[Rfam]
RNA sequence: AAAACUUAGGUACAAUUCCUUAGGUGCUUUUCGUAUGGUUCUUAAUUAAAAAUACAUAUUUUUUGGAUAUAACAAACUUUGAGAAAAUUAUGGAUCUGAGAAAAUCAUGGUAAAUUUAGUUAAGAACCAUACGAAAAACACCUAAGGAAUUGUACCUAAGUUUU
Numbered sequence: 001a002a003a004a005c006u007u008a009g010g011u012a013c014a015a016u017u018c019c020u021u022a023g024g025u026g027c028u029u030u031u032c033g034u035a036u037g038g039u040u041c042u043u044a045a046u047u048a049a050a051a052a053u054a055c056a057u058a059u060u061u062u063u064u065g066g067a068u069a070u071a072a073c074a075a076a077c078u079u080u081g082a083g084a085a086a087a088u089u090a091u092g093g094a095u096c097u098g099a100g101a102a103a104a105u106c107a108u109g110g111u112a113a114a115u116u117u118a119g120u121u122a123a124g125a126a127c128c129a130u131a132c133g134a135a136a137a138a139c140a141c142c143u144a145a146g147g148a149a150u151u152g153u154a155c156c157u158a159a160g161u162u163u164u
Stems, first nucleotide, its partner, number of pairs: 002163007010155004015150011028137016045120006
MIR2606 microRNA precursor family: a 164-nucleotide RNA from Medicago truncatula. The organism belongs to Medicago, within Eukaryota. The base pairs follow the family's consensus structure, which was predicted with RNAalifold. Rfam's curators put it in the seed alignment. Rfam links the family to the GO terms RISC complex and miRNA-mediated post-transcriptional gene silencing.